Background: Rfam assigns this 264-nucleotide RNA from Paenibacillus sp. PvR098 to the family "Bacterial large signal recognition particle RNA". NCBI's taxonomy places the organism under Bacteria, Bacillati, Bacillota, Paenibacillaceae, Paenibacillus. A reference for the family is Rosenblad et al. (2003), "SRPDB: Signal Recognition Particle Database", Nucleic Acids Res. By type it is a non-coding RNA gene. A search with the family's covariance model found it, with a score of 202 bits.
[Rfam]
RNA sequence: CCGUGCUAGACGGGGAGGUAGCGGUGCCCUGUAACCUGCAAUCCGCUGUAGCGGGGUCGAACGCCUAUUCGCGGUAUUGCGAUGUAAGGGUUGGGUUUUAAAGUUGGUGUUGAGAGUCGGGUCCUUCGCAAUGGAUGCCUGUGAAUCCGGUCAGGUCCGGAAGGAAGCAGCCGUAAGCGGGAUGUUUCAUGUGCCGAAGGGUGGCCUAACUUGAGCUGAUGAUAAAAAUUCCACUUGGAUCGUAAUAUCAAGGUAGGUGCACGG
Numbered sequence: 001c002c003g004u005g006c007u008a009g010a011c012g013g014g015g016a017g018g019u020a021g022c023g024g025u026g027c028c029c030u031g032u033a034a035c036c037u038g039c040a041a042u043c044c045g046c047u048g049u050a051g052c053g054g055g056g057u058c059g060a061a062c063g064c065c066u067a068u069u070c071g072c073g074g075u076a077u078u079g080c081g082a083u084g085u086a087a088g089g090g091u092u093g094g095g096u097u098u099u100a101a102a103g104u105u106g107g108u109g110u111u112g113a114g115a116g117u118c119g120g121g122u123c124c125u126u127c128g129c130a131a132u133g134g135a136u137g138c139c140u141g142u143g144a145a146u147c148c149g150g151u152c153a154g155g156u157c158c159g160g161a162a163g164g165a166a167g168c169a170g171c172c173g174u175a176a177g178c179g180g181g182a183u184g185u186u187u188c189a190u191g192u193g194c195c196g197a198a199g200g201g202u203g204g205c206c207u208a209a210c211u212u213g214a215g216c217u218g219a220u221g222a223u224a225a226a227a228a229u230u231c232c233a234c235u236u237g238g239a240u241c242g243u244a245a246u247a248u249c250a251a252g253g254u255a256g257g258u259g260c261a262c263g264g
Stems, first nucleotide, its partner, number of pairs: 001264006009058003012030004017025001019023001035055005064257006073249005079243005085237004092233002096228004101223001105219001106217003114212004119207004123200006129191002132189004138181005148173004156165003
Dot-bracket structure: ((((((..(((((((.(.(...).).))))....(((((...........)))))))).....((((((...(((((.(((((.((((...((..((((.(...((((.....((((.((((((((((((.((((..(((((.....((((....(((....)))....))))...)))))....))))))...))))))...)))).))))..))).)...).))))...)))))).))))).)))))..)))))).))))))